The record is a 77-nucleotide RNA from Athene cunicularia, which matches "Small nucleolar RNA SNORD19" in Rfam. Rfam 15.1 lists 1,431 matches to the family in 609 species. Its Rfam clan is "SNORD19 clan".
RNA sequence: GAAAAAUGAAGAUAAUUCUAACUGCUUCCUAUUAUUACAGUGAAGACCUCAGAUCCAACUCUGAUUUCACUCUGGUU
Numbered sequence: 001g002a003a004a005a006a007u008g009a010a011g012a013u014a015a016u017u018c019u020a021a022c023u024g025c026u027u028c029c030u031a032u033u034a035u036u037a038c039a040g041u042g043a044a045g046a047c048c049u050c051a052g053a054u055c056c057a058a059c060u061c062u063g064a065u066u067u068c069a070c071u072c073u074g075g076u077u
Stems, first nucleotide, its partner, number of pairs: 001068004
Dot-bracket structure: ((((............................................................)))).........